[Rfam]
Description:
IMES-2 RNA motif: a 141-nucleotide RNA sequence. The family's consensus secondary structure is taken from published work. For this family Rfam cites "Exceptional structured noncoding RNAs revealed by bacterial metagenome analysis" (Weinberg et al., Nature, 2009).

RNA sequence: UCUUAACUUAAGAGGCAACUCUUAACUGGCCAUCCAGGGAAAAGUCGAGAGACCUAAGCCUGGAGGGCAGAAAACCCUGCAAAGUAGUGCUAAACAUGUGGGGUGGCCGGUUCGGCGGUAGCAACUUCAACGACGGACCUA
Number, nucleotide and partner (000 for none) at each position: 001u000002c000003u000004u000005a000006a000007c000008u025009u024010a023011a022012g021013a020014g019015g000016c000017a000018a000019c014020u013021c012022u011023u010024a009025a008026c070027u069028g068029g000030c067031c066032a000033u064034c063035c062036a061037g060038g059039g000040a000041a000042a000043a000044g053045u052046c051047g000048a000049g000050a000051g046052a045053c044054c000055u000056a000057a000058g000059c038060c037061u036062g035063g034064a033065g000066g031067g030068c028069a027070g026071a000072a000073a000074a104075c103076c102077c101078u100079g099080c098081a097082a000083a000084g000085u000086a000087g000088u123089g122090c121091u120092a000093a000094a000095c000096a000097u081098g080099u079100g078101g077102g076103g075104u074105g000106g000107c000108c000109g139110g138111u137112u136113c135114g134115g000116c132117g131118g000119u000120a091121g090122c089123a088124a000125c000126u000127u000128c000129a000130a000131c117132g116133a000134c114135g113136g112137a111138c110139c109140u000141a000